The family of this 75-nucleotide sequence from Alligator mississippiensis is "Mammalian CPEB3 ribozyme". Taxonomically the source falls in Alligator (Eukaryota, Opisthokonta, Vertebrata, Alligatoridae). On this family, see Teixeira et al., Nature 2004: "Autocatalytic RNA cleavage in the human beta-globin pre-mRNA promotes transcription termination". Rfam describes the family as follows. The mammalian CPEB3 ribozyme is a self cleaving RNA located in the second intron of the CPEB3 gene which belongs to a family of genes regulating messenger RNA polyadenylation. Pairs were carried over by alignment from the consensus structure, which is taken from published work.
RNA sequence: UGCAAGUUUCAAGGCCACAGCAGAAGCACUCAUGGUACAGCCUGCCAGAUUCCAAUGAAAUCUGCAAGUUCUGCU
Numbered sequence: 001u002g003c004a005a006g007u008u009u010c011a012a013g014g015c016c017a018c019a020g021c022a023g024a025a026g027c028a029c030u031c032a033u034g035g036u037a038c039a040g041c042c043u044g045c046c047a048g049a050u051u052c053c054a055a056u057g058a059a060a061u062c063u064g065c066a067a068g069u070u071c072u073g074c075u
Stems, first nucleotide, its partner, number of pairs: 013042003019075007026038001028036001046064006